[Rfam]
RNA sequence: UGGUGAUGAUGACAAUAGUUGGUCCGUGUUUCUGAGGAGAUUGAUGUUACUCCAACCACUGAACCA
Number, nucleotide and partner (000 for none) at each position: 001u066002g065003g064004u063005g000006a000007u000008g000009a000010u000011g000012a000013c000014a000015a000016u000017a000018g000019u000020u000021g000022g000023u000024c000025c000026g000027u000028g000029u000030u000031u000032c000033u000034g000035a000036g000037g000038a000039g000040a000041u000042u000043g000044a000045u000046g000047u000048u000049a000050c000051u000052c000053c000054a000055a000056c000057c000058a000059c000060u000061g000062a000063a004064c003065c002066a001
Source information
The record is a 66-nucleotide sequence from Toxocara canis, which matches "Small nucleolar RNA SNORD18" in Rfam. The family is grouped with related families in Rfam's "SNORD18 clan". It scores 44 bits against the family's covariance model. Lineage of the source: Eukaryota > Ecdysozoa > Ascaridoidea > Toxocaridae > Toxocara. It is annotated as a C/D-box small nucleolar RNA.